[Rfam]
RNA sequence: GAAAUUAUCGUCCUCGGCGGACAACAGGGCGUGAAUGAAGUCUGGGGGAAUGUCCGCGAAGCGAAUGGGCGUCCGGCGCAUCUCACCGAACUCUGCUAUCAAUUUGUUAUCACUGCUGUAAACGCGCAGCGGGAUCUGCAGCUGCACGUUACGCAGGGCGUCUACCGAGGGCAGGUUGGGACUGAGGUAGAGAUAAGCGCCGCUUAAACUGAGCAGCACUCCACAAAAUAUGGCGACGCAAGUCCACCACAGAAACUUCAGCAGGCGCAUUGGAAGGUCUUGGAUUUCCAGGGAA
Numbered sequence: 001g002a003a004a005u006u007a008u009c010g011u012c013c014u015c016g017g018c019g020g021a022c023a024a025c026a027g028g029g030c031g032u033g034a035a036u037g038a039a040g041u042c043u044g045g046g047g048g049a050a051u052g053u054c055c056g057c058g059a060a061g062c063g064a065a066u067g068g069g070c071g072u073c074c075g076g077c078g079c080a081u082c083u084c085a086c087c088g089a090a091c092u093c094u095g096c097u098a099u100c101a102a103u104u105u106g107u108u109a110u111c112a113c114u115g116c117u118g119u120a121a122a123c124g125c126g127c128a129g130c131g132g133g134a135u136c137u138g139c140a141g142c143u144g145c146a147c148g149u150u151a152c153g154c155a156g157g158g159c160g161u162c163u164a165c166c167g168a169g170g171g172c173a174g175g176u177u178g179g180g181a182c183u184g185a186g187g188u189a190g191a192g193a194u195a196a197g198c199g200c201c202g203c204u205u206a207a208a209c210u211g212a213g214c215a216g217c218a219c220u221c222c223a224c225a226a227a228a229u230a231u232g233g234c235g236a237c238g239c240a241a242g243u244c245c246a247c248c249a250c251a252g253a254a255a256c257u258u259c260a261g262c263a264g265g266c267g268c269a270u271u272g273g274a275a276g277g278u279c280u281u282g283g284a285u286u287u288c289c290a291g292g293g294a295a
Stems, first nucleotide, its partner, number of pairs: 010172008019163003025045001027043004047084002050081003054078001057075002061070002086095001088093001103158002105155003108148001110146001115142006122135001123133001125131002176291006183284001186280002197268005202262003206258002213239002217235001219233001221232001243254001245252001

Rfam assigns this 295-nucleotide RNA from Pseudomonas knackmussii to the family "anti ponA RNA". It is one of the family's seed sequences. Rfam describes the family as follows. Transcribed antisense to the penicillin-binding protein 1A gene called ponA. It was identified by RNAseq and the expression was validated by 5' and 3' RACE experiments. AsponA expression was up or down regulated under different antibiotic stress. Due to its location it may be able to prevent the transcription or translation of the opposite gene. Study by Wurtzel et al. and Ferrara et al. also detected its expression. Gene Ontology term of the family: response to antibiotic.